[Rfam]
RNA sequence: GGCAGUAGAUUUGACAACGGAAUCCCAAAAGCAGCUGUUUUCGUAAAUGUUCAGCUGCAGUUGGGACCCGUUCGCGGAUCUAUUGCAU
Numbered sequence: 001g002g003c004a005g006u007a008g009a010u011u012u013g014a015c016a017a018c019g020g021a022a023u024c025c026c027a028a029a030a031g032c033a034g035c036u037g038u039u040u041u042c043g044u045a046a047a048u049g050u051u052c053a054g055c056u057g058c059a060g061u062u063g064g065g066a067c068c069c070g071u072u073c074g075c076g077g078a079u080c081u082a083u084u085g086c087a088u
Stems, first nucleotide, its partner, number of pairs: 009079005017071004023065003027062002031058007
RNA: mir-191 microRNA precursor family